[Rfam]
RNA sequence: GUGAGAAUCACAGUGCAGUUCUCCUCUGGCAUGGAGGGCAAGAGGAGCUGAAUAGCUAAUGGAUGAUAAACUGCUAGCCUUUCCCUGCCAAAGGAGAGCUGCCCUGCCAUUCAGUG
Number, nucleotide and partner (000 for none) at each position: 001g000002u000003g000004a000005g112006a111007a110008u109009c000010a000011c106012a105013g104014u000015g102016c101017a100018g099019u098020u000021c096022u095023c094024c093025u000026c000027u090028g089029g088030c087031a086032u000033g084034g083035a082036g000037g000038g000039c000040a000041a000042g000043a000044g000045g000046a000047g000048c000049u000050g000051a000052a000053u000054a000055g000056c000057u000058a000059a000060u000061g000062g000063a000064u000065g000066a000067u000068a000069a000070a000071c000072u000073g000074c000075u000076a000077g000078c000079c000080u000081u000082u035083c034084c033085c000086u031087g030088c029089c028090a027091a000092a000093g024094g023095a022096g021097a000098g019099c018100u017101g016102c015103c000104c013105u012106g011107c000108c000109a008110u007111u006112c005113a000114g000115u000116g000

Rfam assigns this 116-nucleotide sequence from Oryza sativa to the family "mir-399 microRNA precursor family". Rfam 15.1 lists 2,396 matches to the family in 221 species. Rfam links the family to the GO terms RISC complex and miRNA-mediated post-transcriptional gene silencing. For this family Rfam cites "Computational Identification of Plant MicroRNAs and Their Targets, Including a Stress-Induced miRNA" (Jones-Rhoades and Bartel, Mol Cell, 2004). Rfam's curators write: mir-399 was identified in both Arabidopsis thaliana and Oryza sativa computationally and was later experimentally verified. mir-399 is thought to target mRNAs coding for a phosphatase transporter. The mature sequence is excised from the 3' arm of the hairpin. The sequence is in the family's curated seed alignment.